Description: This 80-nucleotide sequence from Gossypium raimondii belongs to the Rfam family "Small nucleolar RNA R160".

RNA sequence: AGCAAAAUGAUGAAAGUAAUUUAAAAAUCUGAAUUCUGUGUGGGAAUCCCAUUCUGGGUCUUCAAAGUUCUCUGAUUGCU
Numbered sequence: 001a002g003c004a005a006a007a008u009g010a011u012g013a014a015a016g017u018a019a020u021u022u023a024a025a026a027a028u029c030u031g032a033a034u035u036c037u038g039u040g041u042g043g044g045a046a047u048c049c050c051a052u053u054c055u056g057g058g059u060c061u062u063c064a065a066a067g068u069u070c071u072c073u074g075a076u077u078g079c080u
Base pairs, nucleotide, nucleotide: 001080002079003078004077005076

The match comes from Rfam's covariance-model search (61 bits). Rfam describes the family as follows. snoR160 is a C/D box small nucleolar RNA, which acts as a methylation guide for 25S ribosomal RNA in plants. snoR160 has been alternatively named snoZ270 in rice. The pairing is the family consensus, mapped onto this sequence. A reference for the family is Chen et al. (2003), "The high diversity of snoRNAs in plants: identification and comparative study of 120 snoRNA genes from Oryza sativa", Nucleic Acids Res.